[Rfam]
RNA sequence: CUCUCCGCGAGAUAUGUUUGAUUUUCUUGGUCGUUUAUAAAUGAUCGACCAGGAAUCGAACAUAUUAUUGCGGCGGC
Dot-bracket structure: ....(((((.(((((((((((((((...(((((............))))).)))))))))))))))..)))))....
Numbered sequence: 001c002u003c004u005c006c007g008c009g010a011g012a013u014a015u016g017u018u019u020g021a022u023u024u025u026c027u028u029g030g031u032c033g034u035u036u037a038u039a040a041a042u043g044a045u046c047g048a049c050c051a052g053g054a055a056u057c058g059a060a061c062a063u064a065u066u067a068u069u070g071c072g073g074c075g076g077c
Stems, first nucleotide, its partner, number of pairs: 005073005011066015029050005
Source information: mir-190 microRNA precursor family: a 77-nucleotide RNA sequence from Harpegnathos saltator. Its family is annotated with miRNA-mediated post-transcriptional gene silencing and RISC complex in the Gene Ontology. Pairs were carried over by alignment from the consensus structure, which was predicted with RNAalifold. The family is grouped with related families in Rfam's "mir-50 clan".